[Rfam]
RNA sequence: GGUGGAGCCCGUGCCGGCCUCCAUCCUUUCCACCCGGUACCUCGUACGGCCGGAGUGG
Numbered sequence: 001g002g003u004g005g006a007g008c009c010c011g012u013g014c015c016g017g018c019c020u021c022c023a024u025c026c027u028u029u030c031c032a033c034c035c036g037g038u039a040c041c042u043c044g045u046a047c048g049g050c051c052g053g054a055g056u057g058g
Stems, first nucleotide, its partner, number of pairs: 001025007009017001030058003034053005
Dot-bracket structure: (((((((.(.......).)))))))....(((.(((((..........)))))..)))
Shown here is a 58-nucleotide RNA sequence from Cystobacter fuscus, a member of the family "L17-Actino-Proteobacteria ribosomal protein leader". For this family Rfam cites "Discovery of 20 novel ribosomal leader candidates in bacteria and archaea" (Eckert and Weinberg, BMC Microbiol, 2020). Lineage of the source: Bacteria > Myxococcota > Myxococcia > Archangiaceae > Cystobacter fuscus.